[Rfam]
RNA sequence: GCCCUGUGGUUGCUGGACGCUGCUGUGCCCGUGCAGCGCUUCAGUUGGGAGAUGGGCCCACAGCGACCCUGUGGCUCACGCGGGGGGUCUGUGAGCCCUGAGCAGCCUCCACAGCCCGGCCACAGGCACAGCC
Numbered sequence: 001g002c003c004c005u006g007u008g009g010u011u012g013c014u015g016g017a018c019g020c021u022g023c024u025g026u027g028c029c030c031g032u033g034c035a036g037c038g039c040u041u042c043a044g045u046u047g048g049g050a051g052a053u054g055g056g057c058c059c060a061c062a063g064c065g066a067c068c069c070u071g072u073g074g075c076u077c078a079c080g081c082g083g084g085g086g087g088u089c090u091g092u093g094a095g096c097c098c099u100g101a102g103c104a105g106c107c108u109c110c111a112c113a114g115c116c117c118g119g120c121c122a123c124a125g126g127c128a129c130a131g132c133c
Base pairs, nucleotide, nucleotide: 001058003056004055007050010047012045013044014043015042016041017040019037020036021035022034023033069125071123072122073121074120075119076118080115081114082112084110085109087107089105090104091103092102
Source information
The family of this 133-nucleotide sequence from Hylia prasina is "Small nucleolar RNA SNORA84". The source organism's lineage runs through Eukaryota, Tetrapoda, Archosauria, Neoaves and Hylia. Gene Ontology terms of the family: RNA processing and nucleolus. By type it is an H/ACA-box small nucleolar RNA. The literature on the family includes a 2002 paper in Curr Biol by Marker et al., "Experimental RNomics: identification of 140 candidates for small non-messenger RNAs in the plant Arabidopsis thaliana". The family's consensus secondary structure was predicted with WAR. A search with the family's covariance model found it, with a score of 96 bits.